[Rfam]
Nucleotides: 132
Stems, first nucleotide, its partner, number of pairs: 021054005027049003035044003086112005092106002095103003123132003
Number, partner (000 for none) and nucleotide at each position: 001000a002000u003000c004000u005000u006000u007000g008000u009000g010000c011000u012000c013000g014000g015000g016000c017000a018000a019000g020000u021054g022053a023052u024051u025050a026000a027049u028048c029047c030000a031000g032000u033000g034000a035044a036043g037042u038000u039000u040000a041000u042037a043036c044035u045000g046000a047029g048028g049027a050025u051024a052023a053022u054021c055000a056000a057000a058000u059000u060000g061000c062000u063000g064000g065000u066000u067000g068000c069000a070000a071000a072000c073000u074000a075000u076000u077000a078000c079000c080000a081000a082000a083000g084000a085000c086112u087111u088110c089109c090108a091000u092106c093105g094000c095103c096102u097101u098000g099000c100000g101097g102096g103095g104000u105093u106092g107000u108090u109089g110088g111087a112086g113000a114000a115000u116000u117000u118000c119000u120000g121000a122000g123132c124131c125130c126000c127000c128000a129000g130125g131124g132123g

Annotation
Shown here is a 132-nucleotide sequence from Austropuccinia psidii, a member of the family "U4 spliceosomal RNA". It scores 82 bits against the family's covariance model. Clan: U4 clan. The literature on the family includes a 2018 paper in Science by Bai et al., "Structures of the fully assembled Saccharomyces cerevisiae spliceosome before activation". Pairs were carried over by alignment from the consensus structure, which is taken from published work. NCBI's taxonomy places the organism under Eukaryota, Fungi, Dikarya, Austropuccinia, Austropuccinia psidii.